[Rfam]
RNA sequence: CACGCCCCCGCGGGAGAGCCCGGAAAUCCGCCGUGGAUGGAAGUCCGCAUCGGAAGACCGGCACCGAAGGAGAAACCGCCCCGGAAACUCUCAGGUCCCGAGGACCGCGGGGGGCGA
Numbered sequence: 001c002a003c004g005c006c007c008c009c010g011c012g013g014g015a016g017a018g019c020c021c022g023g024a025a026a027u028c029c030g031c032c033g034u035g036g037a038u039g040g041a042a043g044u045c046c047g048c049a050u051c052g053g054a055a056g057a058c059c060g061g062c063a064c065c066g067a068a069g070g071a072g073a074a075a076c077c078g079c080c081c082c083g084g085a086a087a088c089u090c091u092c093a094g095g096u097c098c099c100g101a102g103g104a105c106c107g108c109g110g111g112g113g114g115c116g117a
Stems, first nucleotide, its partner, number of pairs: 006112008020061004063096003066092002070090003076084002
Shown here is a 117-nucleotide RNA sequence from Prosthecodimorpha hirschii, a member of the family "Glycine riboswitch aptamer". Pairs were carried over by alignment from the consensus structure. A search with the family's covariance model found it, with a score of 53 bits.